[Rfam]
RNA sequence: GUAUGUCCCGGUAUGGUAUACGGGUAUAGGAUCUCCAUACCGUACUCCGACUCAAUACGUCCACGGCUUACAGAACGGUAACAUAUCUCUCCAAUAAUCUGAACUUGGGUACACGGGGAAACCCAACCCCUUAGGAGGAUAGGUUAUAUGGCUAAAUUGAGCGGG
Number, nucleotide and partner (000 for none) at each position: 001g000002u072003a000004u070005g000006u000007c000008c000009c042010g041011g040012u039013a038014u037015g036016g035017u000018a000019u000020a000021c000022g000023g000024g000025u000026a000027u000028a000029g000030g000031a000032u000033c000034u000035c016036c015037a014038u013039a012040c011041c010042g009043u000044a000045c000046u165047c164048c163049g162050a000051c161052u160053c159054a158055a157056u156057a069058c000059g067060u000061c078062c077063a000064c000065g000066g000067c059068u000069u057070a004071c000072a002073g000074a000075a000076c000077g062078g061079u000080a000081a000082c150083a149084u148085a147086u146087c000088u000089c143090u000091c142092c000093a000094a000095u000096a000097a140098u139099c138100u137101g000102a000103a000104c000105u126106u125107g124108g123109g122110u121111a000112c000113a000114c000115g000116g000117g000118g000119a000120a000121a110122c109123c108124c107125a106126a105127c000128c135129c134130c000131u000132u000133a000134g129135g128136a000137g100138g099139a098140u097141a000142g091143g089144u000145u000146a086147u085148a084149u083150g082151g000152c000153u000154a000155a000156a056157u055158u054159g053160a052161g051162c049163g048164g047165g046
Description: The family of this 165-nucleotide RNA from Anopheles gambiae is "drz-agam-2-2 ribozyme". The organism belongs to Anopheles gambiae, within Eukaryota. The literature on the family includes a 2009 paper in Science by Webb et al., "Widespread occurrence of self-cleaving ribozymes". A search with the family's covariance model found it, with a score of 119 bits. The family's consensus secondary structure is taken from published work. Rfam links the family to the GO term catalytic activity.